[Rfam]
RNA sequence: UUUACGUUGGUGCAAACCCAAUCAUCUCACUUUAAGAAGCAAUUCCCCAUUGGUAGCAAAUGGUUAUUCCAUUAAGCGGGGUAAAUCCU
Numbered sequence: 001u002u003u004a005c006g007u008u009g010g011u012g013c014a015a016a017c018c019c020a021a022u023c024a025u026c027u028c029a030c031u032u033u034a035a036g037a038a039g040c041a042a043u044u045c046c047c048c049a050u051u052g053g054u055a056g057c058a059a060a061u062g063g064u065u066a067u068u069c070c071a072u073u074a075a076g077c078g079g080g081g082u083a084a085a086u087c088c089u
Stems, first nucleotide, its partner, number of pairs: 007021004045081004049072002052069001053067005
RNA: Plastid-rps12 3UTR RNA